[Rfam]
RNA sequence: UCGAACUUCCAUCUAAAAAUGUCUAAGAUUUACGUUUUAGUGUAUAUGAGUUAACUUAUUCAAAGGAAGGGAGCAAUAACCAAUUUAUUGUUCUAUCAAGAGGGUUGGUAUUGCUCCUUU
Numbered sequence: 001u002c003g004a005a006c007u008u009c010c011a012u013c014u015a016a017a018a019a020u021g022u023c024u025a026a027g028a029u030u031u032a033c034g035u036u037u038u039a040g041u042g043u044a045u046a047u048g049a050g051u052u053a054a055c056u057u058a059u060u061c062a063a064a065g066g067a068a069g070g071g072a073g074c075a076a077u078a079a080c081c082a083a084u085u086u087a088u089u090g091u092u093c094u095a096u097c098a099a100g101a102g103g104g105u106u107g108g109u110a111u112u113g114c115u116c117c118u119u120u
Stems, first nucleotide, its partner, number of pairs: 010021003067120012082105001085102002088099002
A member of the RNA family "Plastid-psbA-1 3UTR RNA" from Drosera rotundifolia, 120 nucleotides long. On this family, see Richter et al., Plant Commun 2023: "Retrograde signaling in plants: A critical review focusing on the GUN pathway and beyond". Rfam describes the family as follows. Plastid psbA-1 is a non-coding RNA (ncRNA) present in plastids. It was identified in inverted repeat sequences in the 3 prime untranslate region (3UTR) of photosystem II quinone-binding protein (psbA). The source organism's lineage runs through Eukaryota, Streptophytina, Embryophyta, Spermatophyta and Drosera.